Nucleotides: 136
Base pairs, nucleotide, nucleotide: 009046010045011039012038013037014036017034018033020031048070049069051068052067053066054065055064098131100129101128102127103126104125105124106123107122108121109120110119111118
Number, partner (000 for none) and nucleotide at each position: 001000u002000c003000a004000u005000c006000a007000c008000c009046a010045u011039c012038a013037u014036c015000a016000c017034c018033c019000a020031g021000u022000u023000u024000a025000g026000u027000c028000u029000u030000u031020c032000g033018g034017g035000a036014g037013a038012u039011g040000c041000g042000c043000g044000c045010a046009u047000a048070c049069c050000c051068g052067g053066g054065a055064g056000a057000c058000a059000g060000g061000a062000a063000a064055c065054u066053c067052c068051c069049g070048g071000a072000g073000g074000c075000u076000a077000a078000a079000a080000u081000c082000g083000c084000a085000a086000a087000a088000c089000a090000a091000a092000a093000g094000a095000u096000u097000u098131a099000u100129a101128a102127c103126c104125c105124u106123c107122g108121g109120g110119a111118g112000a113000u114000a115000g116000c117000a118111c119110u120109u121108c122107c123106g124105a125104g126103g127102g128101u129100u130000u131098u132000u133000u134000a135000g136000u
Overview
Shown here is a 136-nucleotide RNA sequence from Vibrio galatheae, a member of the family "Histidine operon leader". The family's consensus secondary structure is taken from published work. At least 6 amino acid operons are known to be regulated by attenuation. In each a leader sequence of 150-200 bp is found upstream of the first gene in the operon. This leader sequence can assume two different secondary structures known as the terminator and the anti-terminator structure. In each case the leader also codes for very short peptide sequence that is rich in the end product amino acid of the operon. The terminator structure is recognised as a termination signal for RNA polymerase and the operon is not transcribed. This structure forms when the cell has an excess of the regulatory amino acid and ribosome movement over the leader transcript is not impeded. When there is a deficiency of the charged tRNA of the regulatory amino acid the ribosome translating the leader peptide stalls and the antiterminator structure can form. This allows RNA polymerase to transcribe the operon. In the Rfam alignment the consensus structure is of the terminator structure. By type it is a cis-regulatory leader. NCBI's taxonomy places the organism under Bacteria, Pseudomonadati, Pseudomonadota, Vibrionaceae, Vibrio.